This 93-nucleotide sequence from Canis lupus belongs to the Rfam family "mir-8799 microRNA precursor family".
RNA sequence: GGGGGGUGCUCAGGAUCCUGGGCUGUGUCCCCCGGCGCCCUGGGCUCCAGGGCCUGUGCUUCUGGAAUCGUGCUGCUGGGGCCUAGACUCCCA
Number, nucleotide and partner (000 for none) at each position: 001g000002g000003g000004g092005g091006g090007u000008g000009c000010u087011c086012a084013g083014g082015a000016u000017c079018c078019u000020g076021g000022g074023c000024u072025g071026u070027g069028u066029c065030c000031c000032c064033c000034g060035g059036c058037g057038c056039c000040c000041u000042g054043g000044g053045c052046u051047c000048c000049a000050g000051g046052g045053c044054c042055u000056g038057u037058g036059c035060u034061u000062c000063u000064g032065g029066a028067a000068u000069c027070g026071u025072g024073c000074u022075g000076c020077u000078g018079g017080g000081g000082c014083c013084u012085a000086g011087a010088c000089u000090c006091c005092c004093a000
The source organism's lineage runs through Eukaryota, Opisthokonta, Eumetazoa, Caniformia and Canis lupus. The family has 7 seed sequences and 20,638 matches in Rfam 15.1. Its family is annotated with RISC complex and miRNA-mediated post-transcriptional gene silencing in the Gene Ontology.